[Rfam]
The record is a 125-nucleotide RNA from Yersinia rohdei, which matches "Phenylalanine leader peptide" in Rfam. Pairs were carried over by alignment from the consensus structure, which was predicted with CMfinder.
RNA sequence: GAUGAUCAAUAAAGUGUUUUUCUUCGCAUUCUUUUUUACCUUCCCCUGAUUGGGAGGCGUUUCGUCGUGUGAUAAAGAAUGCGAAGACGAACAAUAAAGCCUCCCAAGCGGGAGGCUUUUUUUAU
Numbered sequence: 001g002a003u004g005a006u007c008a009a010u011a012a013a014g015u016g017u018u019u020u021u022c023u024u025c026g027c028a029u030u031c032u033u034u035u036u037u038a039c040c041u042u043c044c045c046c047u048g049a050u051u052g053g054g055a056g057g058c059g060u061u062u063c064g065u066c067g068u069g070u071g072a073u074a075a076a077g078a079a080u081g082c083g084a085a086g087a088c089g090a091a092c093a094a095u096a097a098a099g100c101c102u103c104c105c106a107a108g109c110g111g112g113a114g115g116c117u118u119u120u121u122u123u124a125u
Base pairs, nucleotide, nucleotide: 016092017091018090019089021087022086023085024084025083026082027081028080029079030078031077032076033075034074036072037071038070039069042055043054044053045052056066057065058064059063096119097118098117099116100115101114102113103112104111105110
The literature on the family includes a 2010 paper in Nucleic Acids Res by Gurvich et al., "Two groups of phenylalanine biosynthetic operon leader peptides genes: a high level of apparently incidental frameshifting in decoding Escherichia coli pheL".
Rfam's curators put it in the seed alignment.
The family's RNA type in Rfam is cis-regulatory leader.